[Rfam]
RNA sequence: CCAACCGCAGCGGGAAAGACCCGACUGUCCGUCGUGCACAACUCGCGACGUCAAGGACCGACGGGGCGCCGACGGAGCAACACCUCCCCAGGAAUCUCUCAGGCCCACCGACCGCCGCGGCCAG
Number, nucleotide and partner (000 for none) at each position: 001c000002c000003a000004a000005c000006c119007g118008c117009a000010g115011c114012g113013g112014g000015a000016a000017a000018g000019a000020c066021c065022c064023g000024a000025c000026u000027g000028u000029c000030c000031g000032u000033c000034g000035u000036g000037c000038a000039c000040a000041a000042c000043u000044c000045g000046c000047g000048a000049c000050g000051u000052c000053a000054a000055g000056g000057a000058c000059c000060g000061a000062c000063g000064g022065g021066g020067c000068g104069c103070c102071g100072a099073c000074g000075g098076a097077g096078c000079a000080a000081c091082a000083c000084c000085u000086c000087c000088c000089c000090a000091g081092g000093a000094a000095u000096c077097u076098c075099u072100c071101a000102g070103g069104c068105c000106c000107a000108c000109c000110g000111a000112c013113c012114g011115c010116c000117g008118c007119g006120g000121c000122c000123a000124g000
The record is a 124-nucleotide RNA sequence from Nocardioides mangrovicus, which matches "Glycine riboswitch aptamer" in Rfam.
Rfam describes the family as follows. This family represents the bacterial glycine riboswitch.
The pairing is the family consensus, mapped onto this sequence.
Taxonomically the source falls in Nocardioides (Bacteria, Bacillati, Actinomycetota, Nocardioidaceae).
The match comes from Rfam's covariance-model search (50 bits).